The record is an 87-nucleotide RNA sequence from Galemys pyrenaicus, which matches "Small nucleolar RNA MBII-202" in Rfam. It scores 43 bits against the family's covariance model. Its family is annotated with RNA processing and nucleolus in the Gene Ontology. The family's consensus secondary structure was predicted with PFOLD. The source organism's lineage runs through Eukaryota, Sarcopterygii, Tetrapoda, Laurasiatheria and Galemys.

[Rfam]
RNA sequence: CUUAGAAAAUCCACUCCAGAAUCAUGGCACUGCUUUGAGGAGAGUAUAGUUGAACACUUUUCCAUCACAAGGCCAAGAAAAAUCAAA
Numbered sequence: 001c002u003u004a005g006a007a008a009a010u011c012c013a014c015u016c017c018a019g020a021a022u023c024a025u026g027g028c029a030c031u032g033c034u035u036u037g038a039g040g041a042g043a044g045u046a047u048a049g050u051u052g053a054a055c056a057c058u059u060u061u062c063c064a065u066c067a068c069a070a071g072g073c074c075a076a077g078a079a080a081a082a083u084c085a086a087a
Base pairs, nucleotide, nucleotide: 002087003086005084006083